Rfam assigns this 109-nucleotide RNA from Populus tomentosa to the family "MIR397 microRNA precursor family". Pairs were carried over by alignment from the consensus structure, which was predicted with WAR.
RNA sequence: AGGCUAAACAUCAUUGAGUGCAGCGUUGAUGAAAUUCUCUUGUUAGCAUACUGUUUUCUCAUGAUGGCGUGGAAUCAUUCCACCAGCGCUGCAUUCAACCAUGUUUUCC
Dot-bracket structure: .....((((((..(((((((((((((((.((.................................................)).)))))))))))))))..))))))...